Rfam assigns this 118-nucleotide RNA from Amycolatopsis alkalitolerans to the family "Actinobacteria sRNA Ms_IGR-7". On this family, see Li et al., RNA 2013: "Identification of small RNAs in Mycobacterium smegmatis using heterologous Hfq". The family has 14 seed sequences and 463 matches in Rfam 15.1. The source organism's lineage runs through Bacteria, Bacillati, Actinomycetes, Pseudonocardiaceae and Amycolatopsis.
RNA sequence: UCGAAGUGCCUUCCAAGGCUGGGUCCGAUUGCUGCGUGAGAACUCCAAUCAUCCCAGCUCAGAAGGCACUUCUCCUAUUUCGACACGCCCACCGGACCCCACCCGUCGGUGGAUCGAG
Numbered sequence: 001u002c003g004a005a006g007u008g009c010c011u012u013c014c015a016a017g018g019c020u021g022g023g024u025c026c027g028a029u030u031g032c033u034g035c036g037u038g039a040g041a042a043c044u045c046c047a048a049u050c051a052u053c054c055c056a057g058c059u060c061a062g063a064a065g066g067c068a069c070u071u072c073u074c075c076u077a078u079u080u081c082g083a084c085a086c087g088c089c090c091a092c093c094g095g096a097c098c099c100c101a102c103c104c105g106u107c108g109g110u111g112g113a114u115c116g117a118g
Stems, first nucleotide, its partner, number of pairs: 003072011017059001019057005027050003031046001034043001099116001101114001103112003